Shown here is a 261-nucleotide RNA from Geopseudomonas guangdongensis, a member of the family "rne-II RNA". By type it is a cis-regulatory element. A search with the family's covariance model found it, with a score of 192 bits. The base pairs follow the family's consensus structure, which is taken from published work.
[Rfam]
RNA sequence: AUACGUGCAGGGUGGAGAUGCACAAACGACGGACUGCGUAGCACUCGACUUUCCAGACGCCAUGAUCGUCCGCAGCGUUGUUUGAUUCCUCCUCCUCGAAGAGUGCUUCUGUACCUACAGUCAGCAGGAGACGCCAGUCGCAGCCAGGCCAGAUAGCCUGUGCAGCUUGACAAGGGUAACGGCCUGGCCGCUCCCGGCGCACCUGACACCGACCAUGAGAGUCGUGUGUGCCAACCGCCGUUUCCGGCAGCCCGGAAACCA
Dot-bracket structure: .............((((.....(((((((((....(((.((.......)).....((((.......)))))))..)))))))))....))))((((.............................))))..((((.(((((.(...(((......)))....).))..)))...((.(.(((.....))).))).))))......((((((((.......)))).))))..........(((((((......)))))))..